[Rfam]
RNA sequence: UAAAGUAAGAGAGGUGCAACAUUCAGGCAACUUAUCUUAGGGAACUAGACCGUUUGAGGAUAAGUGAUGGGAAUGCUUGCCGAGGUGUGAAUUCACUAGACAGGAAUGAUCAUCGGCUGAGUCAGGUUGAAUCCUAUCAGCUGUCAUUUGAGCAAAGCUUAAAUGGAGUGCUCUUAAAUUU
Numbered sequence: 001u002a003a004a005g006u007a008a009g010a011g012a013g014g015u016g017c018a019a020c021a022u023u024c025a026g027g028c029a030a031c032u033u034a035u036c037u038u039a040g041g042g043a044a045c046u047a048g049a050c051c052g053u054u055u056g057a058g059g060a061u062a063a064g065u066g067a068u069g070g071g072a073a074u075g076c077u078u079g080c081c082g083a084g085g086u087g088u089g090a091a092u093u094c095a096c097u098a099g100a101c102a103g104g105a106a107u108g109a110u111c112a113u114c115g116g117c118u119g120a121g122u123c124a125g126g127u128u129g130a131a132u133c134c135u136a137u138c139a140g141c142u143g144u145c146a147u148u149u150g151a152g153c154a155a156a157g158c159u160u161a162a163a164u165g166g167a168g169u170g171c172u173c174u175u176a177a178a179u180u181u
Stems, first nucleotide, its partner, number of pairs: 006176006016080004021074004030065008084114004091107004115142006124135003144166007
The record is a 181-nucleotide RNA from Muribacter muris, which matches "Lysine riboswitch aptamer" in Rfam. NCBI's taxonomy places the organism under Bacteria, Pseudomonadati, Pasteurellales, Pasteurellaceae, Muribacter. A search with the family's covariance model found it, with a score of 76 bits.